[Rfam]
RNA sequence: CAAUAAGGCAUAGGAGUGUCAUCAUGUUUAAAGCAAUGUUUUUCUUCAGUGCAGGUGCGAUGUUUGGCUAUUGUUAUAAGCAUUAUGAUGAAAAAGUUAUAGAGUCUAAUAAAUCUAAAUAGCUCCUAAAAAAAACCGUCUAAAUGGCGGUUUUUUA
Numbered sequence: 001c002a003a004u005a006a007g008g009c010a011u012a013g014g015a016g017u018g019u020c021a022u023c024a025u026g027u028u029u030a031a032a033g034c035a036a037u038g039u040u041u042u043u044c045u046u047c048a049g050u051g052c053a054g055g056u057g058c059g060a061u062g063u064u065u066g067g068c069u070a071u072u073g074u075u076a077u078a079a080g081c082a083u084u085a086u087g088a089u090g091a092a093a094a095a096g097u098u099a100u101a102g103a104g105u106c107u108a109a110u111a112a113a114u115c116u117a118a119a120u121a122g123c124u125c126c127u128a129a130a131a132a133a134a135a136c137c138g139u140c141u142a143a144a145u146g147g148c149g150g151u152u153u154u155u156u157a
Stems, first nucleotide, its partner, number of pairs: 002114001004112001006110001011093001015089001017087002024083006032075007048061001050059003130156011

Shown here is a 157-nucleotide sequence from Acinetobacter baumannii, a member of the family "Acinetobacter sRNA 25". A search with the family's covariance model found it, with a score of 58 bits.